[Rfam]
A member of the RNA family "Group II catalytic intron D1-D4-1" from Pseudoalteromonas galatheae, 96 nucleotides long.

RNA sequence: CGCAAUUUAGAGCAAUUUAUUUUGUGAUUAUCCAGCAGUCAGCAGACGGCAUAGUAGCCAAACACCCAUCGUAAUGGAUGAGACACGGUGAAGGCC
Numbered sequence: 001c002g003c004a005a006u007u008u009a010g011a012g013c014a015a016u017u018u019a020u021u022u023u024g025u026g027a028u029u030a031u032c033c034a035g036c037a038g039u040c041a042g043c044a045g046a047c048g049g050c051a052u053a054g055u056a057g058c059c060a061a062a063c064a065c066c067c068a069u070c071g072u073a074a075u076g077g078a079u080g081a082g083a084c085a086c087g088g089u090g091a092a093g094g095c096c
Base pairs, nucleotide, nucleotide: 001026002025004023005022008019009018010017011016038047039046040045048096049095050094057089058088059087